[Rfam]
RNA sequence: AUGCAAGUCGACCUGAAGCUGUUUGUGAGUAUGUGAAUAUACAUGGAUAGUACUUAUACCUCCCCGGUAUAGACAGGGAGA
Numbered sequence: 001a002u003g004c005a006a007g008u009c010g011a012c013c014u015g016a017a018g019c020u021g022u023u024u025g026u027g028a029g030u031a032u033g034u035g036a037a038u039a040u041a042c043a044u045g046g047a048u049a050g051u052a053c054u055u056a057u058a059c060c061u062c063c064c065c066g067g068u069a070u071a072g073a074c075a076g077g078g079a080g081a
Stems, first nucleotide, its partner, number of pairs: 018051003023046005029040004054072007
The family of this 81-nucleotide sequence from Bacteroides caccae is "Bacteroides-1 RNA". By type it is a small RNA.